[Rfam]
RNA sequence: GAACCGGGAAGUCCACAUCCGACAGCGCGAUGCGCCCUCGGAUGCUUUUUGC
Numbered sequence: 001g002a003a004c005c006g007g008g009a010a011g012u013c014c015a016c017a018u019c020c021g022a023c024a025g026c027g028c029g030a031u032g033c034g035c036c037c038u039c040g041g042a043u044g045c046u047u048u049u050u051g052c
Base pairs, nucleotide, nucleotide: 016044017043018042019041020040021039022038025035026034027033028032

A member of the RNA family "ffh sRNA" from Cohaesibacter sp. CAU 1516, 52 nucleotides long. The family's consensus secondary structure is taken from published work. The organism belongs to Cohaesibacter, within Bacteria. Rfam classes the family as a small RNA.